The family of this 88-nucleotide RNA from Ceratitis capitata is "mir-276 microRNA precursor family". Its family is annotated with miRNA-mediated post-transcriptional gene silencing and RISC complex in the Gene Ontology. Rfam 15.1 lists 200 matches to the family in 170 species. The family's consensus secondary structure was predicted with RNAalifold.
RNA sequence: ACGCCUUAAAGCCAUCAGCGAGGUAUAGAGUUCCUACGUGACUUUAAAGAAUUGUAGGAACUUAAUACCGUGCUCUUGGAGGGCUGUC
Numbered sequence: 001a002c003g004c005c006u007u008a009a010a011g012c013c014a015u016c017a018g019c020g021a022g023g024u025a026u027a028g029a030g031u032u033c034c035u036a037c038g039u040g041a042c043u044u045u046a047a048a049g050a051a052u053u054g055u056a057g058g059a060a061c062u063u064a065a066u067a068c069c070g071u072g073c074u075c076u077u078g079g080a081g082g083g084c085u086g087u088c
Stems, first nucleotide, its partner, number of pairs: 012079003017074004022069005028063010
Dot-bracket structure: ...........(((..((((.(((((.((((((((((................)))))))))).))))).))))..))).........

NCBI's taxonomy places the organism under Eukaryota, Eumetazoa, Hexapoda, Aparaglossata, Ceratitis.